[Rfam]
Nucleotides: 249
Stems, first nucleotide, its partner, number of pairs: 001012004043055004076193001079190001081163004085098004101126005108119003128155003134147005165187003169184005194215002196210004229249004234244004
Number, partner (000 for none) and nucleotide at each position: 001012u002011u003010g004009c005000g006000c007000a008000a009004g010003u011002a012001a013000u014000g015000c016000u017000u018000u019000g020000c021000u022000g023000a024000g025000c026000a027000a028000u029000a030000u031000u032000a033000g034000c035000a036000a037000u038000c039000c040000u041000u042000g043055g044054u045053c046052g047000c048000g049000c050000c051000c052046u053045g054044g055043c056000g057000g058000u059000u060000a061000a062000g063000c064000u065000u066000c067000u068000c069000c070000c071000c072000a073000g074000u075000u076193u077000c078000a079190u080000g081163g082162c083161c084160c085098g086097g087096a088095c089000g090000u091000u092000g093000a094000u095088g096087u097086c098085c099000a100000c101126c102125c103124g104123c105122g106000g107000c108119g109118c110117c111000c112000a113000a114000u115000c116000a117110g118109g119108u120000g121000c122105c123104g124103c125102g126101g127000c128155g129154c130153c131000g132000g133000c134147g135146g136145u137144c138143c139000u140000a141000c142000c143138g144137g145136a146135u147134c148000g149000c150000g151000c152000a153130g154129g155128c156000u157000c158000c159000c160084g161083g162082g163081u164000c165187c166186g167185c168000a169184c170183c171182g172181c173180c174000c175000a176000a177000c178000c179000a180173g181172g182171c183170g184169g185167g186166c187165g188000a189000g190079g191000a192000a193076a194215g195214c196210a197209g198208c199207g200000c201000c202000a203000c204000g205000a206000a207199c208198g209197c210196u211000a212000g213000u214195g215194c216000c217000g218000g219000a220000c221000a222000a223000g224000a225000a226000a227000a228000a229249g230248g231247g232246g233000a234244g235243g236242c237241c238000a239000c240000g241237g242236g243235c244234c245000u246232c247231c248230c249229c
Pseudomonas sRNA P24: a 249-nucleotide RNA sequence from Pseudomonas sp. 8AS. It scores 120 bits against the family's covariance model. Rfam describes the family as follows. This small RNA (sRNA) was computationally identified in the genome of the opportunistic pathogen Pseudomonas aeruginosa and its expression verified by Northern blot analysis. On this family, see Livny et al., Nucleic Acids Res 2006: "Identification of 17 Pseudomonas aeruginosa sRNAs and prediction of sRNA-encoding genes in 10 diverse pathogens using the bioinformatic tool sRNAPredict2". It is annotated as a non-coding RNA gene.